[Rfam]
RNA sequence: GAGUGAAGAGUGAGAAUCUCUUCCGCCGGAUGACCAAGGGUUCCUGGGGAAGGUUCGUCCGCCCAGGGUGAGUCGGGGCCUAAGGCGAGGCCGACAGGCGUAGUCGAUGGAUAACGGGUUGAUAUUCCCGUACCCGUGUGGACGCGUCCAUAGCGAAACGGUUGAUACUAAUUACCCGCUGCUGUUUAACGCCUUCGGGUGUGGAUGGUGGGUGCGUAAGACCUGAUUCCGCGGUAGUUAAGUGAUGGGGUGACGCAGGAGGGUAGCUCUGCCAGUGAGUGGUUGUACUGGUGUAAGCCUGUAGCCCGGUGUGUAGGUAAAUCCGCACGCCAUUAAGGGUGAGGGGUGAUGCGUAGCCGUUGUGGUGAUGUGAGUGAUCCCAUGCUGUCGAGAAAAGCCUCUAGCGAGUGUCUUCACGGCCCGUACCCGAAACCGACACAGGUGGUCAGGUAGAGAAUACCGAGGCGGU
Dot-bracket structure: ....((((((.......))))))((((....((((..((...((((((...((.....)).))))))......((((.((...(((.(.(((....))).).)))...))...(((((........)))))..(((((.(((((.................................................................................................((...(((((...((((..(((..((((.((((((..........))))))((..((((...(((.(((((((.((.....)))))))))......)))...))))...)).(.((((...)))).)...))))...)))...))))........)))))..))...))))).)))))))))..)).....((......)).)))).((((.....))))..))))..
Bacterial large subunit ribosomal RNA: a 469-nucleotide part of an RNA from Saccharopolyspora elongata. Lineage of the source: Bacteria > Actinomycetes > Pseudonocardiales > Pseudonocardiaceae > Saccharopolyspora. It scores 2695 bits against the family's covariance model.